[Rfam]
RNA sequence: CUCUCCGAAAGCUAUUGGGGUAGCGCCUCGUGUUUUUGCUCCAGGUGGUAGAGCACUGUAGUGGCCUUGGGGUCCGAGAGGGCUACCUUGCCAUAGCAAACUCCGAAUACCGGGGCAGCAUUAGCACGGGAGGCAGACGCUGGGUGCUAACAUCCUGCGUCUAAAGGGAAACAACCCAGACCACCAGCUAAGGUCCCAAAGCAUGGCUAAGUGUGGAACGAUGUGGGCAGGCUCUGACAAUCAGGAGGUUGGCCUAGAAGCAGCCAUCCUUUAAAGAUAGCGUAAUAGCUCACUGAUCUAGCCGGCUUGCGCGGAAGAUGUAGCGGGGCUAAGCCAUGCACCGAAGCUGUGGACGCACGGAGUGUGCGUGGUAGGAGAGCGUUCCGUAGGCCUGCGAAGGGAGGCCGGUAGGCCUCUUGGAGGUAUCGGAAGUGCGAAU
Dot-bracket structure: ((((((....(((((....))))).((((((((..(((((((.(((....(((...(((.((((....(((((((....))))).))...)))).)))..)).)....))).)))..)))..)))))))).)...(((((.((((......)))).)))))....(((......)))...((((.(((...(((......(((((((...........((..((((((.(((.......(((((.(((..(((.........)))..)))(...)(...((......)).).)))))...))).)))))).))...................))))))))))...)))))))(((((((...)))))))....))))))(.(((((...(((......((((((((....))))))))...)))..)))))..).....